[Rfam]
RNA: transfer-messenger RNA
RNA sequence: GGGGCCGAUCAGGAUUCGACGCCGGUAACGAAACUCUAGGUGCAUGCCGAGUUGGUAACAGAACUCGUAAAUCCACUGUUGCAACUUCUAUAGUUGCCAAUGACGAAACCUUCAACGACCAGGUAGCUCUGGCCGCUUAAUCGCGGUUAAGAAACUGCUCGUUCUGGCUACUUCGGUACCAGCAGUCACUAGGGGAUGCCUGUAAACCUGAACUGACUGUCAUACAGAACAGGAUCGCUGCGUAGUACGUCGUGGACGAAACAGCUAAAACUUACACGACUCGCCCAAAGCACCCUGCCCCUCGGGCGGCCGCGGGUUAACUCAGUAGAACGGGCUAAGCAUGUAGUACCGACAGCGGAGUACUGGCGGACGGGGGUUCAAAUCCCCCCGGCUCCACCA
Numbered sequence: 001g002g003g004g005c006c007g008a009u010c011a012g013g014a015u016u017c018g019a020c021g022c023c024g025g026u027a028a029c030g031a032a033a034c035u036c037u038a039g040g041u042g043c044a045u046g047c048c049g050a051g052u053u054g055g056u057a058a059c060a061g062a063a064c065u066c067g068u069a070a071a072u073c074c075a076c077u078g079u080u081g082c083a084a085c086u087u088c089u090a091u092a093g094u095u096g097c098c099a100a101u102g103a104c105g106a107a108a109c110c111u112u113c114a115a116c117g118a119c120c121a122g123g124u125a126g127c128u129c130u131g132g133c134c135g136c137u138u139a140a141u142c143g144c145g146g147u148u149a150a151g152a153a154a155c156u157g158c159u160c161g162u163u164c165u166g167g168c169u170a171c172u173u174c175g176g177u178a179c180c181a182g183c184a185g186u187c188a189c190u191a192g193g194g195g196a197u198g199c200c201u202g203u204a205a206a207c208c209u210g211a212a213c214u215g216a217c218u219g220u221c222a223u224a225c226a227g228a229a230c231a232g233g234a235u236c237g238c239u240g241c242g243u244a245g246u247a248c249g250u251c252g253u254g255g256a257c258g259a260a261a262c263a264g265c266u267a268a269a270a271c272u273u274a275c276a277c278g279a280c281u282c283g284c285c286c287a288a289a290g291c292a293c294c295c296u297g298c299c300c301c302u303c304g305g306g307c308g309g310c311c312g313c314g315g316g317u318u319a320a321c322u323c324a325g326u327a328g329a330a331c332g333g334g335c336u337a338a339g340c341a342u343g344u345a346g347u348a349c350c351g352a353c354a355g356c357g358g359a360g361u362a363c364u365g366g367c368g369g370a371c372g373g374g375g376g377u378u379c380a381a382a383u384c385c386c387c388c389c390g391g392c393u394c395c396a397c398c399a
Base pairs, nucleotide, nucleotide: 001395002394003393004392005391006390007389020368021367022366023365024364025363026362027361034355035354037352039350040349041348043343044342045341046340047339048067049066050065051064052063055082056081057080058079059078060077128151130149131148132147133146134145135144136143183219184218185217186216187215188214192209193208194207199233200232201231202230203229237265238264239263240262243259249281283317284316285315286314290310291309293306294305295304297335298334299333300332302329303328372388373387374386375385376384